The family of this 142-nucleotide sequence from Agrobacterium fabrum is "Alphaproteobacterial sRNA ar35".
The sequence is in the family's curated seed alignment.
RNA sequence: AUAGCAACUGCUGGUGAGCGCGAAUGAAAUUGUCGUUCGCAGUUGUUUUGUCGCUUCAGACUUUUGACCACGGAUGUACUGGCACUGGUGUUAAGAGCGAUAUGAGGAAGGUCGGUGCAAUAUUGCCCCGGCCUUUUUUGUU
Number, nucleotide and partner (000 for none) at each position: 001a000002u000003a047004g046005c045006a044007a043008c042009u041010g000011c000012u000013g000014g000015u000016g038017a037018g036019c035020g034021c000022g000023a000024a000025u000026g000027a000028a000029a000030u000031u000032g000033u000034c020035g019036u018037u017038c016039g000040c000041a009042g008043u007044u006045g005046u004047u003048u000049u000050g101051u100052c099053g098054c097055u096056u095057c000058a000059g000060a089061c088062u087063u000064u000065u084066g083067a000068c082069c081070a080071c000072g000073g000074a000075u000076g000077u000078a000079c000080u070081g069082g068083c066084a065085c000086u000087g062088g061089u060090g000091u000092u000093a000094a000095g056096a055097g054098c053099g052100a051101u050102a141103u140104g139105a138106g137107g136108a135109a134110g133111g132112u131113c130114g129115g128116u000117g126118c125119a124120a000121u000122a000123u000124u119125g118126c117127c000128c115129c114130g113131g112132c111133c110134u109135u108136u107137u106138u105139u104140g103141u102142u000